[Rfam]
RNA sequence: UAGUAGGGAGGGUCGGGGUGCCAGCCGUGCCCCGUUCCGAAACCGGCUAUAUGCGGAGGCCAGCAACUGCUGGGUAAACUUCCAGGUAGGCGGUUCCCGCUCGGCGGGCGGAGAUGAACCCACGCCGGGGCGGGUGGUUGCAGGGCCGGAGGCGCCCGAAGGGGCGCCCUCCAGGCCCGAGCCGUCGAAAGGGGCGAGGUCCGGGAGGGAGCAGUCCUAAGGCGGGGCAUCCACGCUUCCCCGUCAACGUGGCGGAUCUUGCCUGUCGGGAGACGGGGCCGUCGGCCUGGACCGGGGCCAGCAGGUCUGCUA
Numbered sequence: 001u002a003g004u005a006g007g008g009a010g011g012g013u014c015g016g017g018g019u020g021c022c023a024g025c026c027g028u029g030c031c032c033c034g035u036u037c038c039g040a041a042a043c044c045g046g047c048u049a050u051a052u053g054c055g056g057a058g059g060c061c062a063g064c065a066a067c068u069g070c071u072g073g074g075u076a077a078a079c080u081u082c083c084a085g086g087u088a089g090g091c092g093g094u095u096c097c098c099g100c101u102c103g104g105c106g107g108g109c110g111g112a113g114a115u116g117a118a119c120c121c122a123c124g125c126c127g128g129g130g131c132g133g134g135u136g137g138u139u140g141c142a143g144g145g146c147c148g149g150a151g152g153c154g155c156c157c158g159a160a161g162g163g164g165c166g167c168c169c170u171c172c173a174g175g176c177c178c179g180a181g182c183c184g185u186c187g188a189a190a191g192g193g194g195c196g197a198g199g200u201c202c203g204g205g206a207g208g209g210a211g212c213a214g215u216c217c218u219a220a221g222g223c224g225g226g227g228c229a230u231c232c233a234c235g236c237u238u239c240c241c242c243g244u245c246a247a248c249g250u251g252g253c254g255g256a257u258c259u260u261g262c263c264u265g266u267c268g269g270g271a272g273a274c275g276g277g278g279c280c281g282u283c284g285g286c287c288u289g290g291a292c293c294g295g296g297g298c299c300a301g302c303a304g305g306u307c308u309g310c311u312a
Base pairs, nucleotide, nucleotide: 001312002311003310004309005308006307007306011061012060013059014058015033016032017031018030019029020028021027036057037056038055039054041052068303069302070301071300072299073298079294082290083289084288089283090282091281092280093279094278096277097276098275099274100270101269102268103267104266105265106264107263108262109261110260111259113257120252121251122250123249124248126243127242128241129240130239132237133236134234135233136232137231139229140228141227143178144177145176146175147174149172151168152167153166154165155164156163157162182225183224184223185222186221191218192217193216194215195214200209201208202207
Dot-bracket structure: (((((((...(((((((((((.....)))))))..((((.(..........).))))))))......((((((.....(..(((....((((((.((((((((((((((((.(......(((((.(((((.((((((.(((.(((((.(.(((((((....)))))))...).)))))...(((((....(((((....(((....)))....)))))..))))).))).)))).)).)))))....)))))....).))))))))))))...))))))))))....)))...)...))))))..)))))))

The family of this 312-nucleotide RNA from a Nitrosopumilaceae archaeon is "Archaeal signal recognition particle RNA". The family is grouped with related families in Rfam's "SRP clan". The family's RNA type in Rfam is non-coding RNA gene. A search with the family's covariance model found it, with a score of 98 bits.